[Rfam]
RNA sequence: GAAACCACGUCUGGAAAGACUCAAGCCAAGUCACCAUUAGCGAGUCUUGGAUUCUAUGGAGUAAUCCAUAGAAUUAAGCGUAGACAGUCAGGUAGUAGAAAGUGGUUGAGCCCCGAAAUGAGUUAAAACGGGAAGGUCGACGGUCUCGAAACGGCCGGAAGACAAAAUCUUACCAAACGGUAUGGCGGGUUUGUUAAGACUUCCCCGGGGGCGAAGAGCC
Numbered sequence: 001g002a003a004a005c006c007a008c009g010u011c012u013g014g015a016a017a018g019a020c021u022c023a024a025g026c027c028a029a030g031u032c033a034c035c036a037u038u039a040g041c042g043a044g045u046c047u048u049g050g051a052u053u054c055u056a057u058g059g060a061g062u063a064a065u066c067c068a069u070a071g072a073a074u075u076a077a078g079c080g081u082a083g084a085c086a087g088u089c090a091g092g093u094a095g096u097a098g099a100a101a102g103u104g105g106u107u108g109a110g111c112c113c114c115g116a117a118a119u120g121a122g123u124u125a126a127a128a129c130g131g132g133a134a135g136g137u138c139g140a141c142g143g144u145c146u147c148g149a150a151a152c153g154g155c156c157g158g159a160a161g162a163c164a165a166a167a168u169c170u171u172a173c174c175a176a177a178c179g180g181u182a183u184g185g186c187g188g189g190u191u192u193g194u195u196a197a198g199a200c201u202u203c204c205c206c207g208g209g210g211g212c213g214a215a216g217a218g219c220c
Stems, first nucleotide, its partner, number of pairs: 012036003018032002021029001025186002040088002044085004048080002050075011107214001108212001111210005130205006136163003141157004168199005174193005
RNA: Group II catalytic intron D1-D4-6